MIR8024 microRNA precursor family: an 87-nucleotide RNA sequence from Solanum commersonii. Pairs were carried over by alignment from the consensus structure, which was predicted with RNAalifold. Rfam links the family to the GO terms miRNA-mediated post-transcriptional gene silencing and RISC complex.
[Rfam]
RNA sequence: UUAAAAGAUUUGAAGACUUUAACCUGCAUAUUUGGAAGACUUGAAGACCUUCAGUUUAUAUACUUGGAAGAUUUGAAGACUUCAACU
Dot-bracket structure: ((.((...((((((...((((...((.(...(((((.............)))))..).))....))))...))))))...)).))..